This 155-nucleotide RNA sequence from Brevirhabdus pacifica belongs to the Rfam family "Ruegeria cis2 sRNA".
Gene Ontology term of the family: regulation of gene expression.
The literature on the family includes a 2016 paper in Front Microbiol by Rivers et al., "Experimental Identification of Small Non-Coding RNAs in the Model Marine Bacterium Ruegeria pomeroyi DSS-3".
Pairs were carried over by alignment from the consensus structure, which was predicted with RNAfold.
Taxonomically the source falls in Brevirhabdus (Bacteria, Pseudomonadati, Pseudomonadota, Paracoccaceae).
[Rfam]
RNA sequence: AUCGACGUCUUCUGCGGCACAUAGUUGAUGAAGGUGAAGCCCCGCGCCUGAUCGAUCGUGUGGAACAGCGGGUUCCAGUCGAACAUCAUCAGCGCGGUCGCCGGCAGCGUGUUGGCGACGAACAUCUUGCCCGAGGCGAUCAUGUUGGCCCGCUG
Numbered sequence: 001a002u003c004g005a006c007g008u009c010u011u012c013u014g015c016g017g018c019a020c021a022u023a024g025u026u027g028a029u030g031a032a033g034g035u036g037a038a039g040c041c042c043c044g045c046g047c048c049u050g051a052u053c054g055a056u057c058g059u060g061u062g063g064a065a066c067a068g069c070g071g072g073u074u075c076c077a078g079u080c081g082a083a084c085a086u087c088a089u090c091a092g093c094g095c096g097g098u099c100g101c102c103g104g105c106a107g108c109g110u111g112u113u114g115g116c117g118a119c120g121a122a123c124a125u126c127u128u129g130c131c132c133g134a135g136g137c138g139a140u141c142a143u144g145u146u147g148g149c150c151c152g153c154u155g
Stems, first nucleotide, its partner, number of pairs: 002037003008034004015027003039059002043054002066155005072084004089148006096141001101135001102133003105129003109125002112121003